[Rfam]
RNA sequence: CCGUGCUAGGUGGGGAGGUAGCGGUGCCCUGUACUCGCAAUCCGCUAUAGCGAGACUGAAUUCCUAUCUGAGGUGCAGAGCAAUAAGGUCUGCCUUAACGGACUGGUGUUGAAGUUUGGGUCCUGCGCAACGUGAACCCGUGAACCCUGUCAGGUUCGGAAGAAAGCAGCAGUAAGCGGUCUUUCAUGUGUGCCGUAGGGAAGCCUGAAUUGAGCCAAGAACUUAAGUAACGCUUAGGGUUAUGUGAUCGACGAUAGGUGCACGG
Numbered sequence: 001c002c003g004u005g006c007u008a009g010g011u012g013g014g015g016a017g018g019u020a021g022c023g024g025u026g027c028c029c030u031g032u033a034c035u036c037g038c039a040a041u042c043c044g045c046u047a048u049a050g051c052g053a054g055a056c057u058g059a060a061u062u063c064c065u066a067u068c069u070g071a072g073g074u075g076c077a078g079a080g081c082a083a084u085a086a087g088g089u090c091u092g093c094c095u096u097a098a099c100g101g102a103c104u105g106g107u108g109u110u111g112a113a114g115u116u117u118g119g120g121u122c123c124u125g126c127g128c129a130a131c132g133u134g135a136a137c138c139c140g141u142g143a144a145c146c147c148u149g150u151c152a153g154g155u156u157c158g159g160a161a162g163a164a165a166g167c168a169g170c171a172g173u174a175a176g177c178g179g180u181c182u183u184u185c186a187u188g189u190g191u192g193c194c195g196u197a198g199g200g201a202a203g204c205c206u207g208a209a210u211u212g213a214g215c216c217a218a219g220a221a222c223u224u225a226a227g228u229a230a231c232g233c234u235u236a237g238g239g240u241u242a243u244g245u246g247a248u249c250g251a252c253g254a255u256a257g258g259u260g261c262a263c264g265g
Stems, first nucleotide, its partner, number of pairs: 001265006009057003012030004017025001019023001034054005063258006072249003079241003084236004091229002095226004103219002105216003113211009122199006128190002131188005138179004147172004155164003
RNA: Bacterial large signal recognition particle RNA
Organism: Amphibacillus xylanus